Shown here is a 234-nucleotide part of an RNA from Brachyspira murdochii, a member of the family "Bacterial large subunit ribosomal RNA". Rfam's curators put it in the seed alignment. On this family, see Yusupov et al., Science 2001: "Crystal structure of the ribosome at 5.5 A resolution".
RNA sequence: GACUUAUAGUACGUAGCAAGAUUAAGAGGUAAUAGCCUUGUAGUCGUAGUGAAAGCGAGCCUUAAUAGGGCGACAUUAGUUGCGUGCUAUACGACCCGAAGCCAAGUGAUCUACCUAUGAGCAGUGCGAAACUCGAGUAACAUCGAAUGGAGGUGCGAACCAGUGGCCGUGAAAAGGCUUUGGAUGACUUGUGGGUAGGAGUGAAAGGCUAAUCAAACUUGGAGAUAGCUGGUU
Numbered sequence: 001g002a003c004u005u006a007u008a009g010u011a012c013g014u015a016g017c018a019a020g021a022u023u024a025a026g027a028g029g030u031a032a033u034a035g036c037c038u039u040g041u042a043g044u045c046g047u048a049g050u051g052a053a054a055g056c057g058a059g060c061c062u063u064a065a066u067a068g069g070g071c072g073a074c075a076u077u078a079g080u081u082g083c084g085u086g087c088u089a090u091a092c093g094a095c096c097c098g099a100a101g102c103c104a105a106g107u108g109a110u111c112u113a114c115c116u117a118u119g120a121g122c123a124g125u126g127c128g129a130a131a132c133u134c135g136a137g138u139a140a141c142a143u144c145g146a147a148u149g150g151a152g153g154u155g156c157g158a159a160c161c162a163g164u165g166g167c168c169g170u171g172a173a174a175a176g177g178c179u180u181u182g183g184a185u186g187a188c189u190u191g192u193g194g195g196u197a198g199g200a201g202u203g204a205a206a207g208g209c210u211a212a213u214c215a216a217a218c219u220u221g222g223a224g225a226u227a228g229c230u231g232g233u234u
Stems, first nucleotide, its partner, number of pairs: 005091013020045004026039003049056002059071004095232002098229001102222006111198011122186001124156004131148001133146004160183003165179004200210003